[Rfam]
RNA sequence: CCCCUCGCCGUGUCGGGGUCAUGACACGGCAUCCUCCCUGUUGGACUUGGCCGGGCGCAAUGCCCGGCCUUUUUU
Numbered sequence: 001c002c003c004c005u006c007g008c009c010g011u012g013u014c015g016g017g018g019u020c021a022u023g024a025c026a027c028g029g030c031a032u033c034c035u036c037c038c039u040g041u042u043g044g045a046c047u048u049g050g051c052c053g054g055g056c057g058c059a060a061u062g063c064c065c066g067g068c069c070u071u072u073u074u075u
Base pairs, nucleotide, nucleotide: 008029009028010027011026012025013024014023049069050068051067052066053065054064055063056062
RNA: Singlet oxygen resistance RNA X
Organism: Tabrizicola sp. TH137